[Rfam]
RNA sequence: AUUAUACCCUACCAGAAACAUUGACUUUGGUUCUCAAUGCAGUAAGUGCUUUUUGUUGGGGUAGUUUUG
Dot-bracket structure: ....((((((..(((((.((((.(((..............))).)))).).))))..))))))......
The family of this 69-nucleotide RNA sequence from Collichthys lucidus is "miR-430 microRNA precursor family". The family's consensus secondary structure was predicted with RNAalifold. Its Rfam clan is "mir-290 clan". A reference for the family is Giraldez et al. (2005), "MicroRNAs regulate brain morphogenesis in zebrafish", Science. Rfam links the family to the GO terms miRNA-mediated post-transcriptional gene silencing and RISC complex. The organism belongs to Collichthys, within Eukaryota.